RNA: Small nucleolar RNA SNORA53
Organism: Xenopus laevis
RNA sequence: UACAUGCUACUCUAAAUGCACCUUUGUGGAUAUCUCAUUCUAAUUGCAUGUCUUAUGCCUUCAACAAUUCUAGCAUAGACAUUCAGGAACUUUAUGAUUUUAUAGUGAGCGUUGAUUUGGUCAUUGGCAUGAGAGUAAUAUACUUGUAUUUUAGCCCUUUGUUUCUAAUACAGGUUUGGGAUCUGUUAUACAAAAACCCAUUAUCCAGAAAGGUCUGAAUUACAGAAGGC
Numbered sequence: 001u002a003c004a005u006g007c008u009a010c011u012c013u014a015a016a017u018g019c020a021c022c023u024u025u026g027u028g029g030a031u032a033u034c035u036c037a038u039u040c041u042a043a044u045u046g047c048a049u050g051u052c053u054u055a056u057g058c059c060u061u062c063a064a065c066a067a068u069u070c071u072a073g074c075a076u077a078g079a080c081a082u083u084c085a086g087g088a089a090c091u092u093u094a095u096g097a098u099u100u101u102a103u104a105g106u107g108a109g110c111g112u113u114g115a116u117u118u119g120g121u122c123a124u125u126g127g128c129a130u131g132a133g134a135g136u137a138a139u140a141u142a143c144u145u146g147u148a149u150u151u152u153a154g155c156c157c158u159u160u161g162u163u164u165c166u167a168a169u170a171c172a173g174g175u176u177u178g179g180g181a182u183c184u185g186u187u188a189u190a191c192a193a194a195a196a197c198c199c200a201u202u203a204u205c206c207a208g209a210a211a212g213g214u215c216u217g218a219a220u221u222a223c224a225g226a227a228g229g230c
Stems, first nucleotide, its partner, number of pairs: 003131006011120002014117002019114002022111001024109002027085005033079003040073003044067003050061001086101004091096001144225005151218001153216002156213001163208002166203003173199002176196001178191001180189001